[Rfam]
RNA sequence: CUACCUAUCGCGCCGAGCUCCAUCCAAUAGGCAGGGUUACCGACCGUGGAUGGAGGCGGGGGACCCACCGGUUCACCGUGAUCGGACCGGAGCCGACUACCGGCUCCUUGGGGUGAAGCCUGCGCGGGGUCCCUUGCGGAUGCCGCGUUGGCCGGGUGGCCUCUCCAACCCGAACCCGACAGCUGACCUCGCAGGCGCGUAGCGAGAGGAAUA
Number, nucleotide and partner (000 for none) at each position: 001c000002u000003a000004c000005c000006u000007a000008u000009c000010g000011c197012g196013c195014c194015g000016a000017g000018c055019u054020c053021c052022a051023u050024c049025c048026a047027a000028u000029a000030g000031g000032c000033a000034g000035g000036g000037u000038u000039a000040c000041c000042g000043a000044c000045c000046g000047u026048g025049g024050a023051u022052g021053g020054a019055g018056g192057c191058g190059g189060g188061g187062g000063a000064c000065c000066c110067a109068c000069c000070g000071g000072u000073u000074c000075a000076c000077c000078g000079u000080g000081a000082u000083c000084g000085g000086a000087c000088c000089g000090g000091a000092g000093c000094c000095g000096a000097c000098u000099a000100c000101c000102g000103g000104c000105u000106c000107c000108u000109u067110g066111g177112g176113g175114u000115g000116a000117a000118g000119c151120c150121u000122g148123c147124g146125c145126g144127g143128g000129g000130u000131c000132c000133c000134u000135u000136g000137c000138g000139g000140a000141u000142g000143c127144c126145g125146c124147g123148u122149u000150g120151g119152c000153c000154g171155g170156g169157u168158g000159g000160c000161c000162u000163c000164u000165c000166c000167a000168a157169c156170c155171c154172g000173a000174a000175c113176c112177c111178g000179a000180c000181a000182g000183c000184u000185g000186a000187c061188c060189u059190c058191g057192c056193a000194g014195g013196c012197g011198c000199g000200u000201a000202g000203c000204g000205a000206g000207a000208g000209g000210a000211a000212u000213a000
Shown here is a 213-nucleotide RNA sequence, a member of the family "c-di-AMP riboswitch aptamer (ydaO/yuaA leader)".
This family represents a conserved RNA structure found upstream of the ydaO and yuaA genes in Bacillus subtilis and related genes in other bacteria.